RNA sequence: UGUUGAGCCCGACCAGACACAACAUUCUGCAGCAAUGUUGUGCGACCUGCAGUGUCGGUCGGCCCGCAGCU
Numbered sequence: 001u002g003u004u005g006a007g008c009c010c011g012a013c014c015a016g017a018c019a020c021a022a023c024a025u026u027c028u029g030c031a032g033c034a035a036u037g038u039u040g041u042g043c044g045a046c047c048u049g050c051a052g053u054g055u056c057g058g059u060c061g062g063c064c065c066g067c068a069g070c071u
Stems, first nucleotide, its partner, number of pairs: 002070004007065001010061005021039006044056003
RNA: bZIP non canonical Hac1/Xbp1 intron